Shown here is a 60-nucleotide RNA sequence from Pyrobaculum oguniense, a member of the family "Pyrobaculum sRNA 208". Rfam's curators put it in the seed alignment. By type it is an H/ACA-box small nucleolar RNA. Rfam's curators write: Non canonical pseudouridylation guide sRNA features. Predicted to target 23S U1978 in Pyrobaculum. On this family, see Bernick et al., RNA 2012: "Discovery of Pyrobaculum small RNA families with atypical pseudouridine guide RNA features". Rfam links the family to the GO term RNA processing. Taxonomically the source falls in Pyrobaculum oguniense (Archaea, Thermoproteota, Thermoproteales, Thermoproteaceae).

RNA sequence: UGGGGCUGAGUAGCCCCUACGGGGCGUCGAUGAAAGCUCCGCGUACGCCAGUGGUCAGCA
Numbered sequence: 001u002g003g004g005g006c007u008g009a010g011u012a013g014c015c016c017c018u019a020c021g022g023g024g025c026g027u028c029g030a031u032g033a034a035a036g037c038u039c040c041g042c043g044u045a046c047g048c049c050a051g052u053g054g055u056c057a058g059c060a
Stems, first nucleotide, its partner, number of pairs: 001041006007034001013025005